Background
Shown here is a 117-nucleotide RNA from Veillonella sp. HPA0037, a member of the family "PyrR binding site". A search with the family's covariance model found it, with a score of 61 bits.
[Rfam]
RNA sequence: AAUCCCUUUUAAAUUGGUCCAGAGAGGCUAAAAAAGGACAUAUAGUUGAAGCGCCCUCAAGGGCUUCUUUGUGCAAACUAUUCGACCUUUUGCCCUGGGGCAAGAGGUCUUUUUUGU
Numbered sequence: 001a002a003u004c005c006c007u008u009u010u011a012a013a014u015u016g017g018u019c020c021a022g023a024g025a026g027g028c029u030a031a032a033a034a035a036g037g038a039c040a041u042a043u044a045g046u047u048g049a050a051g052c053g054c055c056c057u058c059a060a061g062g063g064c065u066u067c068u069u070u071g072u073g074c075a076a077a078c079u080a081u082u083c084g085a086c087c088u089u090u091u092g093c094c095c096u097g098g099g100g101c102a103a104g105a106g107g108u109c110u111u112u113u114u115u116g117u
Stems, first nucleotide, its partner, number of pairs: 003038003007034003014031006045072002048069002051066001053064004084109011
It is annotated as a cis-regulatory element. The organism belongs to Veillonella, within Bacteria. Its family is annotated with pyrimidine nucleobase transport and pyrimidine nucleobase biosynthetic process in the Gene Ontology.